[Rfam]
RNA sequence: CAGUUACAUUCUUGGCACGUCCCCUGCUUAGUUUCUAGGCAGACAUCAAGCGCAGCCUUCAACGGCGAACGGCAGCGCUCCCCCGACAGGCCUAUGCAGGCCGAUAACGGGACCGGACAAAGGCGUCCUCGCAUUCAUGUGCGGGACGCC
Number, nucleotide and partner (000 for none) at each position: 001c000002a000003g000004u000005u000006a000007c000008a000009u000010u000011c000012u120013u119014g118015g027016c026017a025018c000019g000020u000021c000022c000023c000024c000025u017026g016027c015028u000029u000030a000031g000032u000033u000034u000035c000036u000037a000038g000039g000040c000041a000042g000043a000044c000045a000046u000047c000048a000049a000050g078051c077052g076053c075054a000055g000056c072057c071058u000059u068060c067061a000062a000063c000064g000065g000066c000067g060068a059069a000070c000071g057072g056073c000074a000075g053076c052077g051078c050079u000080c000081c000082c111083c110084c109085g108086a000087c000088a000089g000090g000091c000092c000093u000094a000095u000096g000097c000098a000099g000100g000101c000102c000103g000104a000105u000106a000107a000108c085109g084110g083111g082112a000113c000114c000115g000116g000117a000118c014119a013120a012121a000122g150123g149124c148125g147126u146127c145128c144129u000130c143131g142132c141133a140134u139135u000136c000137a000138u000139g134140u133141g132142c131143g130144g128145g127146a126147c125148g124149c123150c122
The record is a 150-nucleotide sequence from Pseudomonas sp. HPB0071, which matches "Pseudomonas sRNA P11" in Rfam.
A search with the family's covariance model found it, with a score of 80 bits.
The source organism's lineage runs through Bacteria, Gammaproteobacteria, Pseudomonadales, Pseudomonadaceae and Pseudomonas.
It is annotated as a non-coding RNA gene.
The base pairs follow the family's consensus structure, which was predicted with RNAalifold.